[Rfam]
RNA sequence: UGCUCCCGGGUUGGGUGGUUGCCUUUGCUGUUCUAACCCUAACCGAGAAGGGCAUAGGCGCUGUGCUUUUGCUCCCCCGCGCGUUGUUUUUCUCGCUGACUUUCAGCGGGCGGGAAAAGCCUCGGCCUACUGCCGUCUACGAAUAGUCCGGACAGACUAAAAAAUGUCAGCCGCGGGCCUCUCGCCCUUCCCGGGAACCUGCAGUGGCUCGCCCGCCCAGCCCCGCGCCCCGCCUGUGGCCGCGGUUGGCCCGGGGCUCCACCGGAGUUUGCCAAUGCCGCCGUGAAGAGUUGGGCUCUGUCAGCCGCGGGUCCCGCGGGAACUAAGGGCGAGGCUCGGGCCUCCGAAAUGCAGGGAGAGAAAUGGAACUGUUCCCAACGUGCGUGUGCUUCCCAGAGUUGUGGGAUGUGCGCCCGGGACUCGGCUCCGACAAGU
Numbered sequence: 001u002g003c004u005c006c007c008g009g010g011u012u013g014g015g016u017g018g019u020u021g022c023c024u025u026u027g028c029u030g031u032u033c034u035a036a037c038c039c040u041a042a043c044c045g046a047g048a049a050g051g052g053c054a055u056a057g058g059c060g061c062u063g064u065g066c067u068u069u070u071g072c073u074c075c076c077c078c079g080c081g082c083g084u085u086g087u088u089u090u091u092c093u094c095g096c097u098g099a100c101u102u103u104c105a106g107c108g109g110g111c112g113g114g115a116a117a118a119g120c121c122u123c124g125g126c127c128u129a130c131u132g133c134c135g136u137c138u139a140c141g142a143a144u145a146g147u148c149c150g151g152a153c154a155g156a157c158u159a160a161a162a163a164a165u166g167u168c169a170g171c172c173g174c175g176g177g178c179c180u181c182u183c184g185c186c187c188u189u190c191c192c193g194g195g196a197a198c199c200u201g202c203a204g205u206g207g208c209u210c211g212c213c214c215g216c217c218c219a220g221c222c223c224c225g226c227g228c229c230c231c232g233c234c235u236g237u238g239g240c241c242g243c244g245g246u247u248g249g250c251c252c253g254g255g256g257c258u259c260c261a262c263c264g265g266a267g268u269u270u271g272c273c274a275a276u277g278c279c280g281c282c283g284u285g286a287a288g289a290g291u292u293g294g295g296c297u298c299u300g301u302c303a304g305c306c307g308c309g310g311g312u313c314c315c316g317c318g319g320g321a322a323c324u325a326a327g328g329g330c331g332a333g334g335c336u337c338g339g340g341c342c343u344c345c346g347a348a349a350u351g352c353a354g355g356g357a358g359a360g361a362a363a364u365g366g367a368a369c370u371g372u373u374c375c376c377a378a379c380g381u382g383c384g385u386g387u388g389c390u391u392c393c394c395a396g397a398g399u400u401g402u403g404g405g406a407u408g409u410g411c412g413c414c415c416g417g418g419a420c421u422c423g424g425c426u427c428c429g430a431c432a433a434g435u
Stems, first nucleotide, its partner, number of pairs: 005195006013187006021178004065120005078112003082108005095171006101164003198355006211335003214331005222320006229311005241285005247280004253273002287299004366427002369424001371420005384413005391406004
RNA: Vertebrate telomerase RNA
Organism: Chrysochloris asiatica